[Rfam]
RNA sequence: GGGUGCUUGAGGCUUUUUGCCUUGAGCAUGAAAUAUGUGGUGAGGCAGAAAGUAAAAGCCCCAGGUCAACUUACAUUAACCUGAGGCAAUCCUAACCACAUCUGAACAAUGUGAGGAUAGCCUCUUCAAUGCAGCAAUGCAAUUGGAGGCUUUGAUG
Numbered sequence: 001g002g003g004u005g006c007u008u009g010a011g012g013c014u015u016u017u018u019g020c021c022u023u024g025a026g027c028a029u030g031a032a033a034u035a036u037g038u039g040g041u042g043a044g045g046c047a048g049a050a051a052g053u054a055a056a057a058g059c060c061c062c063a064g065g066u067c068a069a070c071u072u073a074c075a076u077u078a079a080c081c082u083g084a085g086g087c088a089a090u091c092c093u094a095a096c097c098a099c100a101u102c103u104g105a106a107c108a109a110u111g112u113g114a115g116g117a118u119a120g121c122c123u124c125u126u127c128a129a130u131g132c133a134g135c136a137a138u139g140c141a142a143u144u145g146g147a148g149g150c151u152u153u154g155a156u157g
Stems, first nucleotide, its partner, number of pairs: 001062003005059004012053012063082004068076001083124005089118005097113004130147001132145002
RNA: sok antitoxin (CssrC)